Annotation
This 100-nucleotide sequence from Pseudoflavonifractor sp. AF19-9AC belongs to the Rfam family "SAM riboswitch aptamer (S box leader)". The source organism's lineage runs through Bacteria, Bacillati, Clostridia, Eubacteriales and Pseudoflavonifractor. Rfam links the family to the GO term regulation of gene expression.
RNA sequence: GCCUUAUCAAGAGUGGCUGAGGGACCGGCCCCAUGACGCCACGGCAACCUGCCUUCGGGCAAGGUGCCAAAUCCGGCGGUAGUGUAUCGCAAGAUGAGGG
Numbered sequence: 001g002c003c004u005u006a007u008c009a010a011g012a013g014u015g016g017c018u019g020a021g022g023g024a025c026c027g028g029c030c031c032c033a034u035g036a037c038g039c040c041a042c043g044g045c046a047a048c049c050u051g052c053c054u055u056c057g058g059g060c061a062a063g064g065u066g067c068c069a070a071a072u073c074c075g076g077c078g079g080u081a082g083u084g085u086a087u088c089g090c091a092a093g094a095u096g097a098g099g100g
Stems, first nucleotide, its partner, number of pairs: 002099007013042005021031003025076004043068004048064002050061004072092001077089005